A member of the RNA family "Eukaryotic small subunit ribosomal RNA" from Plasmodium falciparum, 172 nucleotides of a longer RNA. Rfam links the family to the GO terms ribosome and structural constituent of ribosome. The family's consensus secondary structure is taken from published work. Lineage of the source: Eukaryota > Sar > Apicomplexa > Aconoidasida > Plasmodium falciparum. The sequence is in the family's curated seed alignment.
[Rfam]
RNA sequence: CACCGCCCGUCGCUCCUACCGAUUGAAAGAUAUGAUGAAUUGUUUGGAUAUGAAUUAAAAUAAUGAAAUUUUAUAUUUCUGAUUUUUUCUAGAAGAACUGUAAAUCCUAUCUUUUAAAGGAAGGAGAAGUCGUAACAAGGUUUCCGUAGGUGAACCUGCGGAAGGAUCAUUA
Numbered sequence: 001c002a003c004c005g006c007c008c009g010u011c012g013c014u015c016c017u018a019c020c021g022a023u024u025g026a027a028a029g030a031u032a033u034g035a036u037g038a039a040u041u042g043u044u045u046g047g048a049u050a051u052g053a054a055u056u057a058a059a060a061u062a063a064u065g066a067a068a069u070u071u072u073a074u075a076u077u078u079c080u081g082a083u084u085u086u087u088u089c090u091a092g093a094a095g096a097a098c099u100g101u102a103a104a105u106c107c108u109a110u111c112u113u114u115u116a117a118a119g120g121a122a123g124g125a126g127a128a129g130u131c132g133u134a135a136c137a138a139g140g141u142u143u144c145c146g147u148a149g150g151u152g153a154a155c156c157u158g159c160g161g162a163a164g165g166a167u168c169a170u171u172a
Stems, first nucleotide, its partner, number of pairs: 003139001005136001008132002011129001013126005019120002023116001025115008034106003039101002042098004049091002052088001057086005063080001066078004141164010